[Rfam]
RNA sequence: GGCUGGUCUGAGUACAGCUGUGUUUACAAUUAAUUGAUCACAGCCCAUUAAUGAUUUUUUGUCUCUUCUUCACUCCCACUCCUUUACUUGAGUAGCCUUAA
Numbered sequence: 001g002g003c004u005g006g007u008c009u010g011a012g013u014a015c016a017g018c019u020g021u022g023u024u025u026a027c028a029a030u031u032a033a034u035u036g037a038u039c040a041c042a043g044c045c046c047a048u049u050a051a052u053g054a055u056u057u058u059u060u061g062u063c064u065c066u067u068c069u070u071c072a073c074u075c076c077c078a079c080u081c082c083u084u085u086a087c088u089u090g091a092g093u094a095g096c097c098u099u100a101a
Stems, first nucleotide, its partner, number of pairs: 001097005007091002010089002014085001016080002019078002022075001029062002032059002
Rfam assigns this 101-nucleotide RNA sequence from Crocuta crocuta to the family "Y RNA".
The match comes from Rfam's covariance-model search (48 bits).